[Rfam]
RNA sequence: GCCGGGUGCGGUGGCGCGCGCCUGUAAUCCAAGUUACCGGAGGCUGAGACUGGUGGAUCGUUUGAGCUUAGGAGGUCUGAGCUGCAGUGGACUAUGUCGAUCGGGUGUCCGCACUAAGUUCGGUAUCGAUAUGGUGCUCCUGGGGAGCCCGGGACCACCAGGUCGUCUAAGGAGGGGUGCACCGGCCCAGGUCGGAAACGAAGCAGGCCAAAGCCCCCGUGCCGCUCAGUAGUGGGAUCGCGCCUGUGAAUAGACGCUGUAGUGCAGCCUGAGUAAUACAGCGGGACCCAGUCUUUU
Numbered sequence: 001g002c003c004g005g006g007u008g009c010g011g012u013g014g015c016g017c018g019c020g021c022c023u024g025u026a027a028u029c030c031a032a033g034u035u036a037c038c039g040g041a042g043g044c045u046g047a048g049a050c051u052g053g054u055g056g057a058u059c060g061u062u063u064g065a066g067c068u069u070a071g072g073a074g075g076u077c078u079g080a081g082c083u084g085c086a087g088u089g090g091a092c093u094a095u096g097u098c099g100a101u102c103g104g105g106u107g108u109c110c111g112c113a114c115u116a117a118g119u120u121c122g123g124u125a126u127c128g129a130u131a132u133g134g135u136g137c138u139c140c141u142g143g144g145g146a147g148c149c150c151g152g153g154a155c156c157a158c159c160a161g162g163u164c165g166u167c168u169a170a171g172g173a174g175g176g177g178u179g180c181a182c183c184g185g186c187c188c189a190g191g192u193c194g195g196a197a198a199c200g201a202a203g204c205a206g207g208c209c210a211a212a213g214c215c216c217c218c219g220u221g222c223c224g225c226u227c228a229g230u231a232g233u234g235g236g237a238u239c240g241c242g243c244c245u246g247u248g249a250a251u252a253g254a255c256g257c258u259g260u261a262g263u264g265c266a267g268c269c270u271g272a273g274u275a276a277u278a279c280a281g282c283g284g285g286a287c288c289c290a291g292u293c294u295u296u297u
Stems, first nucleotide, its partner, number of pairs: 001044003004023007028041003046295008058284005066274007077267003081263009092253004097248001102246007109236002112234005118227001121224006127165004132160005138154007166172002174217005184209004192201003